[Rfam]
RNA sequence: CUUUGGGCGAAGUACUGCUCAAGGCGGAAGGAG
Numbered sequence: 001c002u003u004u005g006g007g008c009g010a011a012g013u014a015c016u017g018c019u020c021a022a023g024g025c026g027g028a029a030g031g032a033g
Stems, first nucleotide, its partner, number of pairs: 001024008